[Rfam]
RNA sequence: AUAAUGAUACUUCUGUCAAUUCUUAGUCCGAGCGUGAUAAUAACCGUCGCAGACAUUAAUGACAGUUGCAUGAGUUCCAUGCAAAGGUGAAAUCCCUAUGU
Numbered sequence: 001a002u003a004a005u006g007a008u009a010c011u012u013c014u015g016u017c018a019a020u021u022c023u024u025a026g027u028c029c030g031a032g033c034g035u036g037a038u039a040a041u042a043a044c045c046g047u048c049g050c051a052g053a054c055a056u057u058a059a060u061g062a063c064a065g066u067u068g069c070a071u072g073a074g075u076u077c078c079a080u081g082c083a084a085a086g087g088u089g090a091a092a093u094c095c096c097u098a099u100g101u
Base pairs, nucleotide, nucleotide: 012098013065014064015063016062017061018060066084067083068082070080071079072078085097086096087095
RNA: pemK RNA
Organism: Coprobacillus cateniformis